Rfam assigns this 202-nucleotide sequence from Vibrio paucivorans to the family "GcvB RNA".
A search with the family's covariance model found it, with a score of 96 bits.
Lineage of the source: Bacteria > Pseudomonadati > Pseudomonadota > Vibrionaceae > Vibrio.
Rfam's curators write: The gcvB gene encodes a small untranslated RNA involved in expression of the dipeptide and oligopeptide transport systems in Escherichia coli. Included several unknown homologues in alignment (Bateman A pers obs). It base-pairs with SorC. This interaction triggers the degradation of GcvB by RNase E, alleviating the GcvB-mediated mRNA repression of other amino acid-related transport and metabolic genes.
The base pairs follow the family's consensus structure, which is taken from published work.
The family's RNA type in Rfam is non-coding RNA gene.
Rfam links the family to the GO terms mRNA binding and regulation of gene expression.
RNA sequence: GCAACGCUGGCCUGAACGGCUUGAUUCGGUUGAAUCAAUUGGCUCAGUGGUUGCGAUGUUGUGUUUGCAAACUCGUACUUCGAGUUAGGUAGAUUUCUACCAGUUUUGUCUCUGUUAUCCCAAAGACAAAACGAAUACUUCCUGUAUUUUUGACCUGUCUGUCAAAUUUUUUAGCACCGCCUAUUAGGCGGUGUUUUUUUAU
Numbered sequence: 001g002c003a004a005c006g007c008u009g010g011c012c013u014g015a016a017c018g019g020c021u022u023g024a025u026u027c028g029g030u031u032g033a034a035u036c037a038a039u040u041g042g043c044u045c046a047g048u049g050g051u052u053g054c055g056a057u058g059u060u061g062u063g064u065u066u067g068c069a070a071a072c073u074c075g076u077a078c079u080u081c082g083a084g085u086u087a088g089g090u091a092g093a094u095u096u097c098u099a100c101c102a103g104u105u106u107u108g109u110c111u112c113u114g115u116u117a118u119c120c121c122a123a124a125g126a127c128a129a130a131a132c133g134a135a136u137a138c139u140u141c142c143u144g145u146a147u148u149u150u151u152g153a154c155c156u157g158u159c160u161g162u163c164a165a166a167u168u169u170u171u172u173a174g175c176a177c178c179g180c181c182u183a184u185u186a187g188g189c190g191g192u193g194u195u196u197u198u199u200u201a202u
Stems, first nucleotide, its partner, number of pairs: 009044004015040002021038007071085005087111006146168001148166002173195008